[Rfam]
RNA: MIR5565 microRNA precursor family
Organism: Sorghum bicolor
RNA sequence: GUAGUCGGAUUCGUAUCAAUCCAUAUGUGUUGGGUAGGUUGGAGUGAAACUUUAAAGUAAAUUUCAUCCCAAUCCACUCCAACACAUAUGGAUUGAGGUGAAUCCGAUA
Numbered sequence: 001g002u003a004g005u006c007g008g009a010u011u012c013g014u015a016u017c018a019a020u021c022c023a024u025a026u027g028u029g030u031u032g033g034g035u036a037g038g039u040u041g042g043a044g045u046g047a048a049a050c051u052u053u054a055a056a057g058u059a060a061a062u063u064u065c066a067u068c069c070c071a072a073u074c075c076a077c078u079c080c081a082a083c084a085c086a087u088a089u090g091g092a093u094u095g096a097g098g099u100g101a102a103u104c105c106g107a108u109a
Stems, first nucleotide, its partner, number of pairs: 004108011016096017034077002037074006044067003